[Rfam]
RNA: Histone 3' UTR stem-loop
RNA sequence: CCAACGGUCCUUUUCAGGACCACCCAAUUCUCUUUAAGAGCUUUU
Numbered sequence: 001c002c003a004a005c006g007g008u009c010c011u012u013u014u015c016a017g018g019a020c021c022a023c024c025c026a027a028u029u030c031u032c033u034u035u036a037a038g039a040g041c042u043u044u045u
Base pairs, nucleotide, nucleotide: 006021007020008019009018010017011016